[Rfam]
RNA sequence: CGACCCGAAACGCCGAGUUCCGCCCUCCGAGUCGGUGGCCCCUCCCACCUAGCACCCGAGGGCGGAAGUGGGGAACCCAAGGUUCCCGGACUCGCUGUCGCGCCUGCGCGCGCUUCGGCGCGGUCCUUGGGGCGAAGUCGCGCCAGCGACCGGGCAAACUUCCCGCCCGAGCCCGACAGCUAACCUCACAGGCGUGCAGGAAGGACUGU
Number, nucleotide and partner (000 for none) at each position: 001c000002g000003a000004c000005c000006c000007g000008a000009a000010a000011c194012g193013c192014c191015g000016a000017g000018u067019u066020c065021c064022g063023c062024c061025c060026u059027c058028c000029g000030a000031g000032u000033c000034g000035g000036u000037g000038g000039c000040c000041c000042c000043u000044c000045c000046c000047a000048c000049c000050u000051a000052g000053c000054a000055c000056c000057c000058g027059a026060g025061g024062g023063c022064g021065g020066a019067a018068g189069u188070g187071g186072g185073g184074a000075a000076c000077c000078c129079a128080a127081g126082g125083u000084u000085c000086c000087c000088g000089g000090a000091c000092u000093c000094g000095c000096u000097g000098u000099c000100g000101c000102g000103c000104c000105u000106g000107c000108g000109c000110g000111c000112g000113c000114u000115u000116c000117g000118g000119c000120g000121c000122g000123g000124u000125c082126c081127u080128u079129g078130g174131g173132g172133c000134g000135a000136a000137g000138u149139c148140g147141c146142g000143c000144c000145a000146g141147c140148g139149a138150c000151c000152g168153g167154g166155c165156a000157a000158a000159c000160u000161u000162c000163c000164c000165g155166c154167c153168c152169g000170a000171g000172c132173c131174c130175g000176a000177c000178a000179g000180c000181u000182a000183a000184c073185c072186u071187c070188a069189c068190a000191g014192g013193c012194g011195u000196g000197c000198a000199g000200g000201a000202a000203g000204g000205a000206c000207u000208g000209u000